The family of this 87-nucleotide RNA sequence from Citrobacter freundii is "Enterobacterial sRNA STnc230". The sequence is in the family's curated seed alignment. By type it is a small RNA.
[Rfam]
RNA sequence: UUUUCACCCUGCCAUCCUGAGCAUUGAUGAAAGUCGUAAUUGAACAUAACAAAAGUCUCCCAUUCUUGGGAGACUUUUUGGGCAGUU
Numbered sequence: 001u002u003u004u005c006a007c008c009c010u011g012c013c014a015u016c017c018u019g020a021g022c023a024u025u026g027a028u029g030a031a032a033g034u035c036g037u038a039a040u041u042g043a044a045c046a047u048a049a050c051a052a053a054a055g056u057c058u059c060c061c062a063u064u065c066u067u068g069g070g071a072g073a074c075u076u077u078u079u080g081g082g083c084a085g086u087u
Stems, first nucleotide, its partner, number of pairs: 050080005055074007